[Rfam]
RNA: epsC RNA
RNA sequence: CGGAAAUGUCUCCUUUCCCCUAUCAAUGGAGGCACUCGAUCAUGCUGUGGGCUUUACGCCUUAGACGCCAGUCGUCAGUGGUGUGAUGUGAGGGCGGGUUAGAUGCCCC
Number, nucleotide and partner (000 for none) at each position: 001c000002g018003g017004a016005a000006a000007u034008g033009u032010c031011u030012c029013c028014u000015u000016u004017c003018c002019c000020c000021u000022a000023u000024c000025a000026a000027u000028g013029g012030a011031g010032g009033c008034a007035c092036u091037c090038g089039a087040u086041c085042a084043u083044g082045c081046u080047g000048u000049g061050g060051g059052c058053u000054u000055u000056a000057c000058g052059c051060c050061u049062u000063a000064g076065a075066c074067g073068c000069c000070a000071g000072u000073c067074g066075u065076c064077a000078g000079u000080g046081g045082u044083g043084u042085g041086a040087u039088g000089u038090g037091a036092g035093g000094g000095c000096g108097g107098g106099u105100u000101a000102g000103a000104u000105g099106c098107c097108c096109c000